Shown here is a 60-nucleotide RNA sequence, a member of the family "GP20-b RNA". The sequence is in the family's curated seed alignment. The base pairs follow the family's consensus structure, which is taken from published work.
RNA sequence: UGACCGAUCCGAAGUCGUAAAACUAUGGAUAGAGCGGGAGGCAACCCCGUAAAAAGCGUA
Numbered sequence: 001u002g003a004c005c006g007a008u009c010c011g012a013a014g015u016c017g018u019a020a021a022a023c024u025a026u027g028g029a030u031a032g033a034g035c036g037g038g039a040g041g042c043a044a045c046c047c048c049g050u051a052a053a054a055a056g057c058g059u060a
Stems, first nucleotide, its partner, number of pairs: 001017004009028003013024001035049004
Dot-bracket structure: ((((....[[[.[))))......].]]]......((((.......))))...........